[Rfam]
RNA sequence: AAAACAAUUAUAGCGCCAGAACUAAGGAAAUCGAGCGGACAUAAUCCUUAGUUGACGAGGUGGAGGUUUAUCGAAAUUUCGGCGGAUGCCUCCCGAUCGCACAUGCCCGGUUGUAACUUUCGUUUUAAAACAGAGAAGCGAUUUUCUGGACAGAAAAACGAAACGGCAUACAA
Numbered sequence: 001a002a003a004a005c006a007a008u009u010a011u012a013g014c015g016c017c018a019g020a021a022c023u024a025a026g027g028a029a030a031u032c033g034a035g036c037g038g039a040c041a042u043a044a045u046c047c048u049u050a051g052u053u054g055a056c057g058a059g060g061u062g063g064a065g066g067u068u069u070a071u072c073g074a075a076a077u078u079u080c081g082g083c084g085g086a087u088g089c090c091u092c093c094c095g096a097u098c099g100c101a102c103a104u105g106c107c108c109g110g111u112u113g114u115a116a117c118u119u120u121c122g123u124u125u126u127a128a129a130a131c132a133g134a135g136a137a138g139c140g141a142u143u144u145u146c147u148g149g150a151c152a153g154a155a156a157a158a159c160g161a162a163a164c165g166g167c168a169u170a171c172a173a
Stems, first nucleotide, its partner, number of pairs: 020053008029045001062093005071082004094113006118163007131148007
Rfam assigns this 173-nucleotide RNA sequence from Solibacillus silvestris to the family "glmS glucosamine-6-phosphate activated ribozyme aptamer". The family's RNA type in Rfam is riboswitch. The family's consensus secondary structure is taken from published work. The match comes from Rfam's covariance-model search (121 bits).